[Rfam]
RNA: miR-430 microRNA precursor family
Organism: Salmo trutta
RNA sequence: ACAGCAACCCUAACAAAAGCAUUGACUGGUUUUGUCUGCAGUAAGUGCUUUUCAUUUGGGUAUCUGUU
Numbered sequence: 001a002c003a004g005c006a007a008c009c010c011u012a013a014c015a016a017a018a019g020c021a022u023u024g025a026c027u028g029g030u031u032u033u034g035u036c037u038g039c040a041g042u043a044a045g046u047g048c049u050u051u052u053c054a055u056u057u058g059g060g061u062a063u064c065u066g067u068u
Base pairs, nucleotide, nucleotide: 004064007061008060009059010058013055015052016051017050018049019048020047021046022045023044025042026041027040